[Rfam]
RNA sequence: GCCGGCCGCUCCUUCACUCGGAUCGUCCGGCACGUUCCUGCCGGUGAAAGGAAGCA
Numbered sequence: 001g002c003c004g005g006c007c008g009c010u011c012c013u014u015c016a017c018u019c020g021g022a023u024c025g026u027c028c029g030g031c032a033c034g035u036u037c038c039u040g041c042c043g044g045u046g047a048a049a050g051g052a053a054g055c056a
Stems, first nucleotide, its partner, number of pairs: 010051002013048004027044006
RNA: msiK RNA